The family of this 57-nucleotide RNA sequence from Rhodococcus sp. PBTS 1 is "F6 TB sRNA".

[Rfam]
RNA sequence: GGGGUGGCUCCGCAGUGCUGCCCGACCCCCGACCCGGCAGCGCUGCGGGGCCUUCUC
Numbered sequence: 001g002g003g004g005u006g007g008c009u010c011c012g013c014a015g016u017g018c019u020g021c022c023c024g025a026c027c028c029c030c031g032a033c034c035c036g037g038c039a040g041c042g043c044u045g046c047g048g049g050g051c052c053u054u055c056u057c
Base pairs, nucleotide, nucleotide: 002056003055004054007051008050009049010048011047012046013045014044015043016042017041018040019039020038021037022036
Annotation:
Lineage of the source: Bacteria > Actinomycetota > Actinomycetes > Mycobacteriales > Rhodococcus. For this family Rfam cites "Identification of small RNAs in Mycobacterium tuberculosis" (Arnvig and Young, Mol Microbiol, 2009). The base pairs follow the family's consensus structure, which is taken from published work. It is annotated as a small RNA.